Background
This 70-nucleotide RNA from Danionella cerebrum belongs to the Rfam family "mir-338 microRNA precursor family".
RNA sequence: CUGCCAACAACAUCCUGAUGCUGAAAGAGUAUGUUGAGGUAAACUCCAGCAUCUGUGAUUUUGUUGCCAG
Numbered sequence: 001c002u003g004c005c006a007a008c009a010a011c012a013u014c015c016u017g018a019u020g021c022u023g024a025a026a027g028a029g030u031a032u033g034u035u036g037a038g039g040u041a042a043a044c045u046c047c048a049g050c051a052u053c054u055g056u057g058a059u060u061u062u063g064u065u066g067c068c069a070g
Stems, first nucleotide, its partner, number of pairs: 006065005012059003015055001017053007

The match comes from Rfam's covariance-model search (68 bits). A reference for the family is Chen et al. (2005), "The developmental miRNA profiles of zebrafish as determined by small RNA cloning", Genes Dev. The family's consensus secondary structure was predicted with RNAalifold.